[Rfam]
RNA sequence: GAAGGAUGUUCGGUCCUUCGGAGCCGCCUUUCGGGAGGAGGCUUCAAACCGCCCUCCGCUGCGUUACUGAGGUUGAACUCGUGGUGACGCCUUUGGCUAAGGUUUGAUGGUCAGG
Numbered sequence: 001g002a003a004g005g006a007u008g009u010u011c012g013g014u015c016c017u018u019c020g021g022a023g024c025c026g027c028c029u030u031u032c033g034g035g036a037g038g039a040g041g042c043u044u045c046a047a048a049c050c051g052c053c054c055u056c057c058g059c060u061g062c063g064u065u066a067c068u069g070a071g072g073u074u075g076a077a078c079u080c081g082u083g084g085u086g087a088c089g090c091c092u093u094u095g096g097c098u099a100a101g102g103u104u105u106g107a108u109g110g111u112c113a114g115g
Stems, first nucleotide, its partner, number of pairs: 001019007020045006027038004050115001052096002058085002061082003065077001067075001101112004
Group II catalytic intron D1-D4-2: a 115-nucleotide RNA sequence from Streptomyces sp. PT12. A search with the family's covariance model found it, with a score of 38 bits. Rfam describes the family as follows. Group II introns are found in rRNA, tRNA and mRNA of organelles in fungi, plants and protists, and also in mRNA in bacteria.